[Rfam]
RNA sequence: CGAUUUCAGGCUACCCACUCCUCCUCCCAAGGGACGCCUGUCGGAACAACGACACUCCUCCUCCCAGUCGUUGUUCGGUUCUUUUCGAAAAGCCUGCCGCACCUCCUCCCGCGGCAGGCUUUUUCG
Numbered sequence: 001c002g003a004u005u006u007c008a009g010g011c012u013a014c015c016c017a018c019u020c021c022u023c024c025u026c027c028c029a030a031g032g033g034a035c036g037c038c039u040g041u042c043g044g045a046a047c048a049a050c051g052a053c054a055c056u057c058c059u060c061c062u063c064c065c066a067g068u069c070g071u072u073g074u075u076c077g078g079u080u081c082u083u084u085u086c087g088a089a090a091a092g093c094c095u096g097c098c099g100c101a102c103c104u105c106c107u108c109c110c111g112c113g114g115c116a117g118g119c120u121u122u123u124u125c126g
Base pairs, nucleotide, nucleotide: 007040008039009038010037011036014033015032016031044076045075046074047073048072049071050070051069052068053067090121091120092119093118094117095116096115097114098113099112100111
RNA: Alphaproteobacterial ar14
Organism: Agrobacterium bohemicum